[Rfam]
RNA sequence: UAUGCCUUCAGAAUAACCGGACGGAGCAAGGAUAUGCAGUCUCUGUUCGGUUCAGACAGAGGCACAAAAUGAGUGAGAGAGAAAAGAGAGUCUCUCAGUCUCUCCCUUGAAUCAGCUUUUUAAGUGUAAGGAACUAGUUUCCUUUCUAUGUUCCUUUCUUAGAUUGCUUCAGAUAUAU
Numbered sequence: 001u002a003u004g005c006c007u008u009c010a011g012a013a014u015a016a017c018c019g020g021a022c023g024g025a026g027c028a029a030g031g032a033u034a035u036g037c038a039g040u041c042u043c044u045g046u047u048c049g050g051u052u053c054a055g056a057c058a059g060a061g062g063c064a065c066a067a068a069a070u071g072a073g074u075g076a077g078a079g080a081g082a083a084a085a086g087a088g089a090g091u092c093u094c095u096c097a098g099u100c101u102c103u104c105c106c107u108u109g110a111a112u113c114a115g116c117u118u119u120u121u122a123a124g125u126g127u128a129a130g131g132a133a134c135u136a137g138u139u140u141c142c143u144u145u146c147u148a149u150g151u152u153c154c155u156u157u158c159u160u161a162g163a164u165u166g167c168u169u170c171a172g173a174u175a176u177a178u
Stems, first nucleotide, its partner, number of pairs: 003064005009059001015052008024043003074171004081146003086141003090138001150165001152163002

Shown here is a 178-nucleotide RNA sequence from Camellia sinensis, a member of the family "Small nucleolar RNA snoR138". The family's consensus secondary structure was predicted with mfold. The literature on the family includes a 2009 paper in Nucleic Acids Res by Chen and Wu, "Mining small RNA sequencing data: a new approach to identify small nucleolar RNAs in Arabidopsis". The family has 7 seed sequences and 308 matches in Rfam 15.1. Rfam classes the family as an H/ACA-box small nucleolar RNA. NCBI's taxonomy places the organism under Eukaryota, Streptophytina, Embryophyta, eudicotyledons, Camellia.